[Rfam]
Shown here is a 353-nucleotide sequence from Silvanigrella aquatica, a member of the family "Bacterial RNase P class A". The base pairs follow the family's consensus structure, which is taken from published work. Taxonomically the source falls in Silvanigrella (Bacteria, Pseudomonadati, Bdellovibrionota, Silvanigrellales). Ribonuclease P (RNase P) is a ubiquitous endoribonuclease, found in archaea, bacteria and eukarya as well as chloroplasts and mitochondria. It scores 271 bits against the family's covariance model.

RNA sequence: UCGGGUAAUUCAACUACAGCGCGACCUACUUUUGGUAGGAGUGAGGAAAGUCCGGACUUCAUAGAGCAGGAUGCUGGUUAACGACCAGGCGGGGCGACCCGACGGAAAGUGCAACAGAGAACACACAGCCGAAGCCGCAAGGCUGGCAAUGGUGAAAACGUGAGGUAAGAGCUCACGGACUUGGCUGGUGACAGUCAGUCUGGCAAACCCCAUCCGAAGCAAAGCCAAAUAGGGGUGGAGAGCUGGCUCGGCUCGUUUUACACUCGGGUUGGCUGCAAAGAAUGUUGCGGCAACGUAACGUCAAGAGAAAUUGUAGUUUUAAACAGAAUCCGGCUUAUGGAUUGCCCGUAAUU
Dot-bracket structure: .(((((((((.(((((((.(((..(((((.....))))).)))....[[[.[[[[[((((...[[[[.((((((((((.....)))))(((((....)))).)((...((((.............(((((..((((....)))))))..)).......((((((.......)))))).(..((((((....)))))).)...))..)))))))))))))...((((......(((((..(((((.]]]])))))......))))).....)))).......((((((((....))))))))..........)))))))..........]]]]]]]]...))))))))).....